[Rfam]
RNA sequence: GUCCCUGGGAAGAGCACUAGACCAGGAAGUGCCGUAUGACACUGUAAACAGCAGCCGCUUCUCUGCUUCUGCAAGUGUCCAUUCCUGUAUCAUAACCUCUGUGGUUUGCUCUGGGAUGGAAUACCAUUUGCACCGGCCUGAUUCAGCUGUGUGUGUGAUUUGAAACGGGUCUCUGAGGGAC
Numbered sequence: 001g002u003c004c005c006u007g008g009g010a011a012g013a014g015c016a017c018u019a020g021a022c023c024a025g026g027a028a029g030u031g032c033c034g035u036a037u038g039a040c041a042c043u044g045u046a047a048a049c050a051g052c053a054g055c056c057g058c059u060u061c062u063c064u065g066c067u068u069c070u071g072c073a074a075g076u077g078u079c080c081a082u083u084c085c086u087g088u089a090u091c092a093u094a095a096c097c098u099c100u101g102u103g104g105u106u107u108g109c110u111c112u113g114g115g116a117u118g119g120a121a122u123a124c125c126a127u128u129u130g131c132a133c134c135g136g137c138c139u140g141a142u143u144c145a146g147c148u149g150u151g152u153g154u155g156u157g158a159u160u161u162g163a164a165a166c167g168g169g170u171c172u173c174u175g176a177g178g179g180a181c
Stems, first nucleotide, its partner, number of pairs: 001181005070132008078120007089110001091108002094106004
RNA: Small nucleolar RNA Z112
Organism: Triticum aestivum